[Rfam]
RNA sequence: UGAAAAGCGAUGAAAAGGAAAGUAAUUUCUCGAAAGUUUUUCAGAGAGUCUGGGUUGGUGAGAGCAGGCAAACGGAAGAGUUAUGAAAAUGGCCUUGGAGCUAUGAAGCUGAGACGUAAGUUUAGGUUUCGUCGGGUUCGCCCGUUAACGCGACAGAGUAUGAUAGUACUCGAUAAGAUUUAUAUCGUGAGAUAUGAAUAAAUUAAGGUGGUAACAUGAGCACGCUCAUCCUUAGG
Numbered sequence: 001u002g003a004a005a006a007g008c009g010a011u012g013a014a015a016a017g018g019a020a021a022g023u024a025a026u027u028u029c030u031c032g033a034a035a036g037u038u039u040u041u042c043a044g045a046g047a048g049u050c051u052g053g054g055u056u057g058g059u060g061a062g063a064g065c066a067g068g069c070a071a072a073c074g075g076a077a078g079a080g081u082u083a084u085g086a087a088a089a090u091g092g093c094c095u096u097g098g099a100g101c102u103a104u105g106a107a108g109c110u111g112a113g114a115c116g117u118a119a120g121u122u123u124a125g126g127u128u129u130c131g132u133c134g135g136g137u138u139c140g141c142c143c144g145u146u147a148a149c150g151c152g153a154c155a156g157a158g159u160a161u162g163a164u165a166g167u168a169c170u171c172g173a174u175a176a177g178a179u180u181u182a183u184a185u186c187g188u189g190a191g192a193u194a195u196g197a198a199u200a201a202a203u204u205a206a207g208g209u210g211g212u213a214a215c216a217u218g219a220g221c222a223c224g225c226u227c228a229u230c231c232u233u234a235g236g
Base pairs, nucleotide, nucleotide: 007101008100015096016095017094018093025084026083029080030079037072038071039070048069049068050067051066052065104131105130106129107128108127109126110125133144134143135142178199179198180197181196182195183194184193205233206232207231208230216229217228218227219226220225

T-box leader: a 236-nucleotide RNA sequence from Erysipelothrix inopinata. For this family Rfam cites "Solution structure of the Bacillus subtilis T-box antiterminator RNA: seven nucleotide bulge characterized by stacking and flexibility" (Gerdeman et al., J Mol Biol, 2003). It is annotated as a cis-regulatory leader. A search with the family's covariance model found it, with a score of 116 bits.